RNA sequence: CCAGCACUCCCUGGUAGGCCAAGGUGUCCUACAGAAAAGCCUUGGGUCCCAUCCGCCAGGGGGUCUGG
Numbered sequence: 001c002c003a004g005c006a007c008u009c010c011c012u013g014g015u016a017g018g019c020c021a022a023g024g025u026g027u028c029c030u031a032c033a034g035a036a037a038a039g040c041c042u043u044g045g046g047u048c049c050c051a052u053c054c055g056c057c058a059g060g061g062g063g064u065c066u067g068g
Base pairs, nucleotide, nucleotide: 001068002067003066004065006064007063008062009061010060011059014056015055017053018052019045020044021043022042023041024040025039026032027031
RNA: MAT2A 3'UTR stem loop E
Organism: Anolis carolinensis